The family of this 135-nucleotide RNA sequence from Moschus moschiferus is "Small nucleolar RNA SNORA70". snoRNA U70 seems to be exclusive to mammals and is a member of the H/ACA class of snoRNA which contain H (ANANNA) and ACA box motifs. H/ACA box snoRNAs are involved in the conversion of uridines to pseudouridines (5-ribosyluracil) a constituent of structural RNAs (transfer, ribosomal, small nuclear, and small nucleolar). Rfam 15.1 lists 5,173 matches to the family in 383 species. The literature on the family includes a 2000 paper in IUBMB Life by Charette and Gray, "Pseudouridine in RNA: what, where, how, and why". The base pairs follow the family's consensus structure, which was predicted with PFOLD.
RNA sequence: ACAUAGAAAAGGUCAUAAACUGUGCUCUUUUCCCCAUGGGGCCCAGUGUGCGAUGGCUGCACAUGGCAGCCUCCUCAGUAGGGUAUACUGCCUGAAUGCCUGCUCCAGUUGCCCCAAGGGGCCUUGGAGACAGUC
Numbered sequence: 001a002c003a004u005a006g007a008a009a010a011g012g013u014c015a016u017a018a019a020c021u022g023u024g025c026u027c028u029u030u031u032c033c034c035c036a037u038g039g040g041g042c043c044c045a046g047u048g049u050g051c052g053a054u055g056g057c058u059g060c061a062c063a064u065g066g067c068a069g070c071c072u073c074c075u076c077a078g079u080a081g082g083g084u085a086u087a088c089u090g091c092c093u094g095a096a097u098g099c100c101u102g103c104u105c106c107a108g109u110u111g112c113c114c115c116a117a118g119g120g121g122c123c124u125u126g127g128a129g130a131c132a133g134u135c
Stems, first nucleotide, its partner, number of pairs: 002052001004050002019047004025041004078122002088111001090109002093107002